[Rfam]
RNA sequence: UCACGUACAGGGCAAACCAUUUGAAAGGAUGGGACGCAAAGCCACCGGCCUUAGUCAAUAAUUUUGAUAGGUAGCGGGGUUGCCGAU
Numbered sequence: 001u002c003a004c005g006u007a008c009a010g011g012g013c014a015a016a017c018c019a020u021u022u023g024a025a026a027g028g029a030u031g032g033g034a035c036g037c038a039a040a041g042c043c044a045c046c047g048g049c050c051u052u053a054g055u056c057a058a059u060a061a062u063u064u065u066g067a068u069a070g071g072u073a074g075c076g077g078g079g080u081u082g083c084c085g086a087u
Stems, first nucleotide, its partner, number of pairs: 012037002017032006040081004045077003048072003055066001057064002
Shown here is an 87-nucleotide sequence from Vibrio sp. 10N.286.49.B3, a member of the family "c-di-GMP-I riboswitch aptamer". The match comes from Rfam's covariance-model search (81 bits). Rfam's curators write: GEMM was predicted in a large-scale screen for bacterial structured RNA regulatory elements. Genes associated with GEMM are involved in a diverse array of functions, including chemotaxis regulation, signal transduction, secretion and chitin. The family has 155 seed sequences and 5,092 matches in Rfam 15.1. Pairs were carried over by alignment from the consensus structure, which is taken from published work. Taxonomically the source falls in Vibrio (Bacteria, Pseudomonadati, Pseudomonadota, Vibrionales).